[Rfam]
RNA sequence: AAGCUGCCCGCAUGUUCGCUGAUUCGUCAGCACAUGCCAGCAGCCAUGGGUUCCAGGCUGCCGUGGGUUCUUCCCGCGUAACCCGCCAGUCCGUAUCGCAUCAAGUCUGCGGACACGCGUCCCCGUGACGCCGAUGC
Numbered sequence: 001a002a003g004c005u006g007c008c009c010g011c012a013u014g015u016u017c018g019c020u021g022a023u024u025c026g027u028c029a030g031c032a033c034a035u036g037c038c039a040g041c042a043g044c045c046a047u048g049g050g051u052u053c054c055a056g057g058c059u060g061c062c063g064u065g066g067g068u069u070c071u072u073c074c075c076g077c078g079u080a081a082c083c084c085g086c087c088a089g090u091c092c093g094u095a096u097c098g099c100a101u102c103a104a105g106u107c108u109g110c111g112g113a114c115a116c117g118c119g120u121c122c123c124c125g126u127g128a129c130g131c132c133g134a135u136g137c
Base pairs, nucleotide, nucleotide: 011036012035013034014033015032018031019030020029021028022027040061041060042059043058044057045056048084049083050082062078063077064076065075066074067073109137110136111135117131118130119129120128121127
RNA: radC RNA
Organism: Bordetella petrii